RNA sequence: UUCAUUCCAGCGGAAGAGUCCGGACCGCGCCACGGUCCGGCGCCGAAGGCGCAACCACCCCGGAAACGCUCAGGCACAAGGGACCGCACGGGAUUU
Numbered sequence: 001u002u003c004a005u006u007c008c009a010g011c012g013g014a015a016g017a018g019u020c021c022g023g024a025c026c027g028c029g030c031c032a033c034g035g036u037c038c039g040g041c042g043c044c045g046a047a048g049g050c051g052c053a054a055c056c057a058c059c060c061c062g063g064a065a066a067c068g069c070u071c072a073g074g075c076a077c078a079a080g081g082g083a084c085c086g087c088a089c090g091g092g093a094u095u096u
Stems, first nucleotide, its partner, number of pairs: 006091002010087004020040007042075003045071002049069003055063002